This 156-nucleotide sequence from Burkholderia glumae belongs to the Rfam family "Burkholderia sRNA 35". Identified by RNA-seq, RACE and Northern blot. Strongly expressed in biofilm. A reference for the family is Sass et al. (2017), "Identification of small RNAs abundant in Burkholderia cenocepacia biofilms reveal putative regulators with a potential role in carbon and iron metabolism", Sci Rep. Lineage of the source: Bacteria > Pseudomonadati > Betaproteobacteria > Burkholderiales > Burkholderia glumae. The family's consensus secondary structure was predicted with RNAfold.
[Rfam]
RNA sequence: UUGACGGUUCAUCGUCAACGGUUCGCUCCCGACGCACAUAUGUCAAUGGCACGCAGGGCGCGAAUCCGGGCGUGGCGACGCUGUUGCCGGCCCGGACUCAUUGGCGCGGACAUCCGAACGGUCUUCGACCGGACCCGGAUGUCCGCCGAUUUCUUU
Numbered sequence: 001u002u003g004a005c006g007g008u009u010c011a012u013c014g015u016c017a018a019c020g021g022u023u024c025g026c027u028c029c030c031g032a033c034g035c036a037c038a039u040a041u042g043u044c045a046a047u048g049g050c051a052c053g054c055a056g057g058g059c060g061c062g063a064a065u066c067c068g069g070g071c072g073u074g075g076c077g078a079c080g081c082u083g084u085u086g087c088c089g090g091c092c093c094g095g096a097c098u099c100a101u102u103g104g105c106g107c108g109g110a111c112a113u114c115c116g117a118a119c120g121g122u123c124u125u126c127g128a129c130c131g132g133a134c135c136c137g138g139a140u141g142u143c144c145g146c147c148g149a150u151u152u153c154u155u156u
Base pairs, nucleotide, nucleotide: 024062025061026060028058029057030056033053034052037048038047039046065096066095067094068093069092070091073089074088075087076086101149106146107145108144109143110142111141112140113139114138115137116136120134122132123131